[Rfam]
RNA sequence: GCGGGGACCAGUUGUGACCGGUCAUGGGCAAAAUACAUAUUAUUUUGUCCACUGUUGCAGUCUUCCUAGAAUGAAGUGGAGGUCUCUGUCUGCUUUAGGACAGCCAACUAAAUCAGAUCGUUCCCCUCCUUACAUG
Numbered sequence: 001g002c003g004g005g006g007a008c009c010a011g012u013u014g015u016g017a018c019c020g021g022u023c024a025u026g027g028g029c030a031a032a033a034u035a036c037a038u039a040u041u042a043u044u045u046u047g048u049c050c051a052c053u054g055u056u057g058c059a060g061u062c063u064u065c066c067u068a069g070a071a072u073g074a075a076g077u078g079g080a081g082g083u084c085u086c087u088g089u090c091u092g093c094u095u096u097a098g099g100a101c102a103g104c105c106a107a108c109u110a111a112a113u114c115a116g117a118u119c120g121u122u123c124c125c126c127u128c129c130u131u132a133c134a135u136g
Base pairs, nucleotide, nucleotide: 004066005065006064009060011058012057025051026050027049028048029047032044033043034042078129079128080127081126082125086120088118089117090116092114094112095111096110097109098108

The family of this 136-nucleotide RNA from Acrocephalus arundinaceus is "Small Cajal body specific RNA 3".
The base pairs follow the family's consensus structure, which was predicted with RNAalifold.
Lineage of the source: Eukaryota > Deuterostomia > Saurischia > Sylviidae > Acrocephalus.
The family is grouped with related families in Rfam's "SCARNA3 clan".
About the family: scaRNAs are a specific class of small nuclear RNAs which localise to the Cajal bodies and guide the modification of RNA polymerase II transcribed spliceosomal RNAs U1, U2, U4, U5 and U12.
By type it is a small Cajal body RNA.